[Rfam]
Rfam assigns this 118-nucleotide RNA sequence from Proteus myxofaciens to the family "Phenylalanine leader peptide". Rfam classes the family as a cis-regulatory leader. The family's consensus secondary structure was predicted with CMfinder. On this family, see Zurawski et al., Proc Natl Acad Sci U S A 1978: "Nucleotide sequence of the leader region of the phenylalanine operon of Escherichia coli". It scores 68 bits against the family's covariance model.
RNA sequence: UAUUCGUCUUUUUUUGUCUUUCUUCUUUUUCUUUUUACUCUUUCACUAAGAGGCUUUUGUCAUUUCAGAAAGAAAAAAAAGAACGACAAUAGCCUCCCAAUACGGAGGCUUUUUUAUU
Numbered sequence: 001u002a003u004u005c006g007u008c009u010u011u012u013u014u015u016g017u018c019u020u021u022c023u024u025c026u027u028u029u030u031c032u033u034u035u036u037a038c039u040c041u042u043u044c045a046c047u048a049a050g051a052g053g054c055u056u057u058u059g060u061c062a063u064u065u066c067a068g069a070a071a072g073a074a075a076a077a078a079a080a081g082a083a084c085g086a087c088a089a090u091a092g093c094c095u096c097c098c099a100a101u102a103c104g105g106a107g108g109c110u111u112u113u114u115u116a117u118u
Stems, first nucleotide, its partner, number of pairs: 016087003021082004026077009036067001039051004052061003089112001091110007